[Rfam]
RNA: Purine riboswitch aptamer
Nucleotides: 099
Stems, first nucleotide, its partner, number of pairs: 019084007029049006058075006
Number, partner (000 for none) and nucleotide at each position: 001000u002000u003000a004000a005000a006000g007000a008000a009000u010000u011000u012000a013000a014000u015000a016000u017000a018000a019084c020083u021082u022081c023080g024079u025078a026000u027000a028000a029049c030048u031047c032046c033045a034044a035000u036000a037000a038000u039000a040000u041000g042000g043000u044034u045033u046032g047031g048030a049029g050000g051000u052000c053000u054000c055000u056000a057000c058075c059074a060073g061072g062071a063070a064000c065000c066000g067000a068000a069000a070063u071062u072061c073060c074059u075058g076000a077000u078025u079024a080023c081022g082021a083020a084019g085000a086000g087000a088000g089000u090000g091000c092000a093000a094000a095000a096000g097000g098000u099000g